A member of the RNA family "Group II catalytic intron D1-D4-4" from Orrella marina, 140 nucleotides long.
The pairing is the family consensus, mapped onto this sequence.
For this family Rfam cites "The ins and outs of group II introns" (Bonen and Vogel, Trends Genet, 2001).
Its family is annotated with Group II intron splicing in the Gene Ontology.
NCBI's taxonomy places the organism under Bacteria, Pseudomonadota, Betaproteobacteria, Alcaligenaceae, Orrella.
RNA sequence: UGGUGGGCACGAAUUCCACCCGGCAACUAUUGCUCUGGCCGGUAGCAAUCGGAGCAGUCAUGGAGGUAACGAAAUGGCUGAAGCCUUCGGUGCACAGGGACAUUAAGUGUCCUGGCGAGCAUGCAGGCACCUUUGCAUGC
Numbered sequence: 001u002g003g004u005g006g007g008c009a010c011g012a013a014u015u016c017c018a019c020c021c022g023g024c025a026a027c028u029a030u031u032g033c034u035c036u037g038g039c040c041g042g043u044a045g046c047a048a049u050c051g052g053a054g055c056a057g058u059c060a061u062g063g064a065g066g067u068a069a070c071g072a073a074a075u076g077g078c079u080g081a082a083g084c085c086u087u088c089g090g091u092g093c094a095c096a097g098g099g100a101c102a103u104u105a106a107g108u109g110u111c112c113u114g115g116c117g118a119g120c121a122u123g124c125a126g127g128c129a130c131c132u133u134u135g136c137a138u139g140c
Stems, first nucleotide, its partner, number of pairs: 020042005050089005055080006065070001097113006115140003